[Rfam]
RNA sequence: UGUGAGGCUAGAGUCUCACCGAGGCAUGACGUUGCCCCGGCGUGCUGGAGUCCUCGGAGAGCAGCCGCUGGCCUUAUUCCCUGGCUGUGGCCCCGUGGCCGGGCCGGUCACCAGGCCAGGGACAGGC
Numbered sequence: 001u002g003u004g005a006g007g008c009u010a011g012a013g014u015c016u017c018a019c020c021g022a023g024g025c026a027u028g029a030c031g032u033u034g035c036c037c038c039g040g041c042g043u044g045c046u047g048g049a050g051u052c053c054u055c056g057g058a059g060a061g062c063a064g065c066c067g068c069u070g071g072c073c074u075u076a077u078u079c080c081c082u083g084g085c086u087g088u089g090g091c092c093c094c095g096u097g098g099c100c101g102g103g104c105c106g107g108u109c110a111c112c113a114g115g116c117c118a119g120g121g122a123c124a125g126g127c
Base pairs, nucleotide, nucleotide: 003056004055005054006053007051008050009049012046013045015044017042019040020039023036024035025034026033068119069118070117071116072115073114074113081107082106083105084104086102089099091097
A member of the RNA family "Small nucleolar RNA SNORA3/SNORA45 family" from Erinaceus europaeus, 127 nucleotides long.
Its family is annotated with nucleolus and RNA processing in the Gene Ontology.
It is annotated as an H/ACA-box small nucleolar RNA.
The literature on the family includes a 2005 paper in Nucleic Acids Res by Gu et al., "A novel experimental approach for systematic identification of box H/ACA snoRNAs from eukaryotes".
Rfam's curators write: The members of this family belong to the H/ACA class of snoRNAs which are thought to guide the sites of modification of uridines to pseudouridines. This family includes mouse snoMBI-28 and human homologues ACA3 (SNORA3) and ACA3-2 (SNORA45). Both ACA3 and ACA3-2 share the same host gene. MBI-28, ACA3 and ACA3-2 are all predicted to guide the pseudouridylation of residues in 28S rRNA.